[Rfam]
RNA sequence: UCCCUCCAGAUCCCUUUCCCAUCGGAUCUGAAUACCGAUCUUGUGGUCGAAAAAGGAGGAAAAAUAAAAUGCAAACUGGUCUCAGCCUCUUUGCUGGUACAGUCUUGCUCUGAGAGGG
Numbered sequence: 001u002c003c004c005u006c007c008a009g010a011u012c013c014c015u016u017u018c019c020c021a022u023c024g025g026a027u028c029u030g031a032a033u034a035c036c037g038a039u040c041u042u043g044u045g046g047u048c049g050a051a052a053a054a055g056g057a058g059g060a061a062a063a064a065u066a067a068a069a070u071g072c073a074a075a076c077u078g079g080u081c082u083c084a085g086c087c088u089c090u091u092u093g094c095u096g097g098u099a100c101a102g103u104c105u106u107g108c109u110c111u112g113a114g115a116g117g118g
Base pairs, nucleotide, nucleotide: 003059004058005057006056007055019046020045021044023043025040026039027038028037076107078105079104081102082101
RNA: Small nucleolar RNA SNORA61
Organism: Struthio camelus